[Rfam]
RNA: FMN riboswitch aptamer (RFN element)
RNA sequence: UCGCUGUUUCAGGGCGGGGUGAAAUUCCCCACUGGCGGUGAACCGGCUGCGGGCAAAGGGCACGCAGGCGUUCGGUAUCUGGGCCGUUCGCGAACCGGCAGUCCGCGACCCUUCCAAUGCUGGCGCGUUGGCAAGGCUGAUUUGGUGAGAGUCCAAGACCAACGGUUAAAGUCCGGAUGAAAGAGGCAGGUG
Numbered sequence: 001u002c003g004c005u006g007u008u009u010c011a012g013g014g015c016g017g018g019g020u021g022a023a024a025u026u027c028c029c030c031a032c033u034g035g036c037g038g039u040g041a042a043c044c045g046g047c048u049g050c051g052g053g054c055a056a057a058g059g060g061c062a063c064g065c066a067g068g069c070g071u072u073c074g075g076u077a078u079c080u081g082g083g084c085c086g087u088u089c090g091c092g093a094a095c096c097g098g099c100a101g102u103c104c105g106c107g108a109c110c111c112u113u114c115c116a117a118u119g120c121u122g123g124c125g126c127g128u129u130g131g132c133a134a135g136g137c138u139g140a141u142u143u144g145g146u147g148a149g150a151g152u153c154c155a156a157g158a159c160c161a162a163c164g165g166u167u168a169a170a171g172u173c174c175g176g177a178u179g180a181a182a183g184a185g186g187c188a189g190g191u192g
Stems, first nucleotide, its partner, number of pairs: 004189007017029003031172002033161002035106004110136004141157005163175003